[Rfam]
Shown here is a 112-nucleotide RNA from Bacteroides cellulosilyticus, a member of the family "Bacteroides sRNA BTnc049". The family's RNA type in Rfam is small RNA. On this family, see Ryan et al., Nat Commun 2020: "A high-resolution transcriptome map identifies small RNA regulation of metabolism in the gut microbe Bacteroides thetaiotaomicron". The source organism's lineage runs through Bacteria, Pseudomonadati, Bacteroidaceae, Bacteroides and Bacteroides cellulosilyticus.
RNA sequence: ACAGAUAAAGGAAGUUGUGAAACUUCCCCCAAUAGAAUAGUUUAGUUAAGUCUAGUUUAGUUUUUGUGUGAAGCACUUCCUCCGUAAGCGAACGAUAGGAAGUGCUUUUUGU
Numbered sequence: 001a002c003a004g005a006u007a008a009a010g011g012a013a014g015u016u017g018u019g020a021a022a023c024u025u026c027c028c029c030c031a032a033u034a035g036a037a038u039a040g041u042u043u044a045g046u047u048a049a050g051u052c053u054a055g056u057u058u059a060g061u062u063u064u065u066g067u068g069u070g071a072a073g074c075a076c077u078u079c080c081u082c083c084g085u086a087a088g089c090g091a092a093c094g095a096u097a098g099g100a101a102g103u104g105c106u107u108u109u110u111g112u
Base pairs, nucleotide, nucleotide: 001067002066003065004064005063011026012025013024014023015022016021039058040057042055043054044053045052073105074104075103076102077101078100079099080098081097083094084093085092